[Rfam]
RNA sequence: UUAGCAUGACAAGCGCCAGAGCUUGCACAGAAGCAGGAUGGGACGAAGGAGCAAGACCGCCUGCCGCAAGCUGACGAGGUGGAGGUGUUCGAAAUUUCGGCGGGGACCUCCCGGUUGGGUAUUCGACCGCAAGCCGCAAUGCAAAACGUUCGGGCGACCGGGCGCACAAUCGUUGCGGCGGAAUACGGU
Numbered sequence: 001u002u003a004g005c006a007u008g009a010c011a012a013g014c015g016c017c018a019g020a021g022c023u024u025g026c027a028c029a030g031a032a033g034c035a036g037g038a039u040g041g042g043a044c045g046a047a048g049g050a051g052c053a054a055g056a057c058c059g060c061c062u063g064c065c066g067c068a069a070g071c072u073g074a075c076g077a078g079g080u081g082g083a084g085g086u087g088u089u090c091g092a093a094a095u096u097u098c099g100g101c102g103g104g105g106a107c108c109u110c111c112c113g114g115u116u117g118g119g120u121a122u123u124c125g126a127c128c129g130c131a132a133g134c135c136g137c138a139a140u141g142c143a144a145a146a147c148g149u150u151c152g153g154g155c156g157a158c159c160g161g162g163c164g165c166a167c168a169a170u171c172g173u174u175g176c177g178g179c180g181g182a183a184u185a186c187g188g189u
Stems, first nucleotide, its partner, number of pairs: 020072007081111005089100004112129006133179007147164007
RNA: glmS glucosamine-6-phosphate activated ribozyme aptamer